[Rfam]
RNA sequence: AAGUAACGGUGAAGAUGCCGUUUACCCGCAACGGGACGGAAAGACCCCGUGAACCUUUACUGCAACUUCGCAUUGGCUCUGGGUAAGUGAUGUGUAGGAUAGGACGGAGGCUAUGAACCGGGUUCGCUAGGAUUCGGGGAGCCGCCCUUGAAAUACGUCCCUUUGCUUACUUGGCGUCUAACUCCGCAGGGAGGACAUUGCGUGGUGGGUAGUUUGACUGGGGUGGUCGCCUCCAAAAGUGUAACGGAGGCUCCCAAAGGUACCCUCAUGGCGAUUGGUAACCGCCAGCAGAGUGUAAUGGUAUAAGGGUGCUUGACUGUGAGACCGACGGGUCGAUCAGGUAGGAAACUAGGGCAUAGUGAUCCGGUGGUUCCGAAUGGAAGGGCCAUCGCUCAAAGGAUAAAAGGUACUCCGGGGAUAACAGGCUGAUCGCUCCCAAGAGCUCAUAUCGACGGAGCGGUUUGGCACCUCGAUGUCGGCUCGUCACAUCCUGGGGCUGGAGAAGGUCCCAAGGGUUGGGCUGUUCGCCCAUUAAAGUGGCACGCGAGCUGGGUUCAGAACGUCGUGAGACAGUUCGGUCCCUAUCUGUUGUGGGCGUU
Numbered sequence: 001a002a003g004u005a006a007c008g009g010u011g012a013a014g015a016u017g018c019c020g021u022u023u024a025c026c027c028g029c030a031a032c033g034g035g036a037c038g039g040a041a042a043g044a045c046c047c048c049g050u051g052a053a054c055c056u057u058u059a060c061u062g063c064a065a066c067u068u069c070g071c072a073u074u075g076g077c078u079c080u081g082g083g084u085a086a087g088u089g090a091u092g093u094g095u096a097g098g099a100u101a102g103g104a105c106g107g108a109g110g111c112u113a114u115g116a117a118c119c120g121g122g123u124u125c126g127c128u129a130g131g132a133u134u135c136g137g138g139g140a141g142c143c144g145c146c147c148u149u150g151a152a153a154u155a156c157g158u159c160c161c162u163u164u165g166c167u168u169a170c171u172u173g174g175c176g177u178c179u180a181a182c183u184c185c186g187c188a189g190g191g192a193g194g195a196c197a198u199u200g201c202g203u204g205g206u207g208g209g210u211a212g213u214u215u216g217a218c219u220g221g222g223g224u225g226g227u228c229g230c231c232u233c234c235a236a237a238a239g240u241g242u243a244a245c246g247g248a249g250g251c252u253c254c255c256a257a258a259g260g261u262a263c264c265c266u267c268a269u270g271g272c273g274a275u276u277g278g279u280a281a282c283c284g285c286c287a288g289c290a291g292a293g294u295g296u297a298a299u300g301g302u303a304u305a306a307g308g309g310u311g312c313u314u315g316a317c318u319g320u321g322a323g324a325c326c327g328a329c330g331g332g333u334c335g336a337u338c339a340g341g342u343a344g345g346a347a348a349c350u351a352g353g354g355c356a357u358a359g360u361g362a363u364c365c366g367g368u369g370g371u372u373c374c375g376a377a378u379g380g381a382a383g384g385g386c387c388a389u390c391g392c393u394c395a396a397a398g399g400a401u402a403a404a405a406g407g408u409a410c411u412c413c414g415g416g417g418a419u420a421a422c423a424g425g426c427u428g429a430u431c432g433c434u435c436c437c438a439a440g441a442g443c444u445c446a447u448a449u450c451g452a453c454g455g456a457g458c459g460g461u462u463u464g465g466c467a468c469c470u471c472g473a474u475g476u477c478g479g480c481u482c483g484u485c486a487c488a489u490c491c492u493g494g495g496g497c498u499g500g501a502g503a504a505g506g507u508c509c510c511a512a513g514g515g516u517u518g519g520g521c522u523g524u525u526c527g528c529c530c531a532u533u534a535a536a537g538u539g540g541c542a543c544g545c546g547a548g549c550u551g552g553g554u555u556c557a558g559a560a561c562g563u564c565g566u567g568a569g570a571c572a573g574u575u576c577g578g579u580c581c582c583u584a585u586c587u588g589u590u591g592u593g594g595g596c597g598u599u
Stems, first nucleotide, its partner, number of pairs: 005022005025595008034587003038582002046416004051412002053408005059213004066205002069202004075178003079174012092161001102160005109143003118137008182193003216228004229251006252397001254354002260312006266292002269287005293302002317340003323334003342351003365391007373384002425466003429463001430460007440450002477552001478550004482544001483541005490515002493510006517531005558576004562571003

Background:
Bacterial large subunit ribosomal RNA: a 599-nucleotide part of an RNA from Mariniphaga anaerophila. Taxonomically the source falls in Mariniphaga (Bacteria, Pseudomonadati, Bacteroidota, Prolixibacteraceae). Its Rfam clan is "LSU clan".